mir-16 microRNA precursor family: an 81-nucleotide RNA from Megalops atlanticus. It scores 45 bits against the family's covariance model. The family's consensus secondary structure was predicted with PFOLD. Its Rfam clan is "mir-15 clan". The family has 14 seed sequences and 4,705 matches in Rfam 15.1. NCBI's taxonomy places the organism under Eukaryota, Deuterostomia, Teleostei, Elopocephalai, Megalops. For this family Rfam cites "Cryo-EM Structures of Human Drosha and DGCR8 in Complex with Primary MicroRNA" (Partin et al., Mol Cell, 2020).
RNA sequence: GCCAGGCCAUAGCAGCACAUCAAUAUUGGGAGCUGCCCUUUCACUGGACUGCCAGUAUGGCUUGUGCUGCUCCAGUCAGAC
Numbered sequence: 001g002c003c004a005g006g007c008c009a010u011a012g013c014a015g016c017a018c019a020u021c022a023a024u025a026u027u028g029g030g031a032g033c034u035g036c037c038c039u040u041u042c043a044c045u046g047g048a049c050u051g052c053c054a055g056u057a058u059g060g061c062u063u064g065u066g067c068u069g070c071u072c073c074a075g076u077c078a079g080a081c
Base pairs, nucleotide, nucleotide: 001081003079005077006076007075010074011071012070013069014068015067016066017065018064023058024057025056026055027054028053029052